[Rfam]
Background:
The family of this 75-nucleotide RNA sequence from Brevibacterium aurantiacum is "Actino-pnp RNA". It is annotated as a cis-regulatory element.

RNA sequence: UUCGGUCCUCGGUAGUGGCUUCCGGAAGAGCACGCAUGCGCAUGCUGAUUCCGUGGGCCCCGAUCGAUGACCGGC
Numbered sequence: 001u002u003c004g005g006u007c008c009u010c011g012g013u014a015g016u017g018g019c020u021u022c023c024g025g026a027a028g029a030g031c032a033c034g035c036a037u038g039c040g041c042a043u044g045c046u047g048a049u050u051c052c053g054u055g056g057g058c059c060c061c062g063a064u065c066g067a068u069g070a071c072c073g074g075c
Base pairs, nucleotide, nucleotide: 002074003073004072005071006070007069009067010066011065012064013063017059018058019057020056021055023053024052025051026050030049031047032046